A member of the RNA family "Small nucleolar RNA R44/J54/Z268 family" from Spinacia oleracea, 96 nucleotides long. Pairs were carried over by alignment from the consensus structure, which was predicted with PFOLD. The family has 29 seed sequences and 1,168 matches in Rfam 15.1.
[Rfam]
RNA sequence: AGUGCAAAUGAUGAUAAAACUAGACAGGGACAUCAGAAACUCUUAAUGAGUGAAUCCAUGUUGAGUUGUCUUAAAUGGGAAUCUCUUUGAUGCUCU
Dot-bracket structure: .(.(((....................................................................................))).).